[Rfam]
RNA: mir-9193 microRNA precursor family
Organism: Cnephaeus nilssonii
RNA sequence: UCAGAGGGGGGGGUGUCCCUCAGCCCGGAUUGUGAGAGGGCACAGGCCAGGCCGAGGGACACCACUGGUGCACG
Numbered sequence: 001u002c003a004g005a006g007g008g009g010g011g012g013g014u015g016u017c018c019c020u021c022a023g024c025c026c027g028g029a030u031u032g033u034g035a036g037a038g039g040g041c042a043c044a045g046g047c048c049a050g051g052c053c054g055a056g057g058g059a060c061a062c063c064a065c066u067g068g069u070g071c072a073c074g
Stems, first nucleotide, its partner, number of pairs: 004071001006069001009066002012063010023052003027048002030045005